Rfam assigns this 67-nucleotide RNA sequence to the family "L2-Alphaproteobacteria ribosomal protein leader". Rfam's curators put it in the seed alignment.
RNA sequence: GGGGACCUUCGGGGCCCUUGACACCAUAGGCCCAUGACCGGGCCGCAAAGCAACGGAAAGUCAGUAA
Numbered sequence: 001g002g003g004g005a006c007c008u009u010c011g012g013g014g015c016c017c018u019u020g021a022c023a024c025c026a027u028a029g030g031c032c033c034a035u036g037a038c039c040g041g042g043c044c045g046c047a048a049a050g051c052a053a054c055g056g057a058a059a060g061u062c063a064g065u066a067a
Stems, first nucleotide, its partner, number of pairs: 001018004006014003029044005